[Rfam]
RNA sequence: ACUUCUUCCAGAAGGCAGGGCGGUGAAAGCGCGAUGGAGCGCAGAAUGUUCGGCAUCAACGGAGACGAGGGCUGCGUCGGUGUCACCCGACGAGAAGU
Numbered sequence: 001a002c003u004u005c006u007u008c009c010a011g012a013a014g015g016c017a018g019g020g021c022g023g024u025g026a027a028a029g030c031g032c033g034a035u036g037g038a039g040c041g042c043a044g045a046a047u048g049u050u051c052g053g054c055a056u057c058a059a060c061g062g063a064g065a066c067g068a069g070g071g072c073u074g075c076g077u078c079g080g081u082g083u084c085a086c087c088c089g090a091c092g093a094g095a096a097g098u
Base pairs, nucleotide, nucleotide: 001098002097003096004095005094006093

Notes:
The record is a 98-nucleotide RNA sequence from Caenorhabditis auriculariae, which matches "Small nucleolar RNA sn2991" in Rfam. Rfam links the family to the GO terms RNA processing and nucleolus. The organism belongs to Caenorhabditis, within Eukaryota. The literature on the family includes a 2002 paper in Biochem Biophys Res Commun by Higa et al., "Location of 2(')-O-methyl nucleotides in 26S rRNA and methylation guide snoRNAs in Caenorhabditis elegans". It is annotated as a C/D-box small nucleolar RNA.